[Rfam]
RNA sequence: UGAAGACCCCAUUCCACAACGGAUCGUCCGGCACGUACCUGCCGGUGGAAGGACACACGA
Numbered sequence: 001u002g003a004a005g006a007c008c009c010c011a012u013u014c015c016a017c018a019a020c021g022g023a024u025c026g027u028c029c030g031g032c033a034c035g036u037a038c039c040u041g042c043c044g045g046u047g048g049a050a051g052g053a054c055a056c057a058c059g060a
Stems, first nucleotide, its partner, number of pairs: 010051001012050005028045006